[Rfam]
Annotation: Shown here is a 131-nucleotide RNA from Parambassis ranga, a member of the family "Small Cajal body specific RNA 8". Pairs were carried over by alignment from the consensus structure, which is taken from published work.
RNA sequence: UGGGAGGCAGAUACUUGGGCAGUCAUAAGCAGUGGUCUGUCCGUCACUAGCCCUCCCUAUAGCAUCCAUGCUCUCUGAUGACCGUGGCGAAUUGAGAGAAAUCGUCACGGACAGAUACGGAGCUGACACUG
Numbered sequence: 001u002g003g004g005a006g007g008c009a010g011a012u013a014c015u016u017g018g019g020c021a022g023u024c025a026u027a028a029g030c031a032g033u034g035g036u037c038u039g040u041c042c043g044u045c046a047c048u049a050g051c052c053c054u055c056c057c058u059a060u061a062g063c064a065u066c067c068a069u070g071c072u073c074u075c076u077g078a079u080g081a082c083c084g085u086g087g088c089g090a091a092u093u094g095a096g097a098g099a100a101a102u103c104g105u106c107a108c109g110g111a112c113a114g115a116u117a118c119g120g121a122g123c124u125g126a127c128a129c130u131g
Stems, first nucleotide, its partner, number of pairs: 002057006016043003022037001024035001067125001070123005082110003087105004
About this RNA:
NCBI's taxonomy places the organism under Eukaryota, Osteoglossocephalai, Percomorphaceae, Ambassidae, Parambassis. It scores 114 bits against the family's covariance model. Rfam's curators write: scaRNAs are a specific class of small nuclear RNAs which localise to the Cajal bodies and guide the modification of RNA polymerase II transcribed spliceosomal RNAs U1, U2, U4, U5 and U12. U92 belong to the H/ACA box class of guide RNAs as it has the predicted hairpin-hinge-hairpin-tail structure, conserved H/ACA-box motifs and is found associated with GAR1.